Rfam assigns this 267-nucleotide sequence from Tissierella praeacuta to the family "Bacterial large signal recognition particle RNA".
RNA sequence: CCGUGCUAGAUGGGGAGGUAGCGGUGCCCUAUAACCUGCAAUCCGCUAUAGCAGGAUUGAAUUCCCAGUCUAGGCAUCUCUGUUGUGAGGUCUGCCCUAAAUAAGUGGCAGUGACGAUUGGGUCCUACGCAACGAAAACUCAUGAACCCCGUCAGAUCCGGAAGGAAGCAGCGGUAAGUGAAACCUUUCGUGUGCCGUAGGGAAGCCUGAUCUGAGUUAACUGUUUGGGUAACGCUUGGAACAGGAUUGCCAAAGCUGGGUGCACGG
Numbered sequence: 001c002c003g004u005g006c007u008a009g010a011u012g013g014g015g016a017g018g019u020a021g022c023g024g025u026g027c028c029c030u031a032u033a034a035c036c037u038g039c040a041a042u043c044c045g046c047u048a049u050a051g052c053a054g055g056a057u058u059g060a061a062u063u064c065c066c067a068g069u070c071u072a073g074g075c076a077u078c079u080c081u082g083u084u085g086u087g088a089g090g091u092c093u094g095c096c097c098u099a100a101a102u103a104a105g106u107g108g109c110a111g112u113g114a115c116g117a118u119u120g121g122g123u124c125c126u127a128c129g130c131a132a133c134g135a136a137a138a139c140u141c142a143u144g145a146a147c148c149c150c151g152u153c154a155g156a157u158c159c160g161g162a163a164g165g166a167a168g169c170a171g172c173g174g175u176a177a178g179u180g181a182a183a184c185c186u187u188u189c190g191u192g193u194g195c196c197g198u199a200g201g202g203a204a205g206c207c208u209g210a211u212c213u214g215a216g217u218u219a220a221c222u223g224u225u226u227g228g229g230u231a232a233c234g235c236u237u238g239g240a241a242c243a244g245g246a247u248u249g250c251c252a253a254a255g256c257u258g259g260g261u262g263c264a265c266g267g
Stems, first nucleotide, its partner, number of pairs: 001267006009058003012030004017025001019023001035055005064260006073251004080244005086238004093231002097228006105221002107218003116212008124201006130192002133190005140181004149174004157166003
The signal recognition particle (SRP) is a universally conserved ribonucleoprotein involved in the co-translational targeting of proteins to membranes.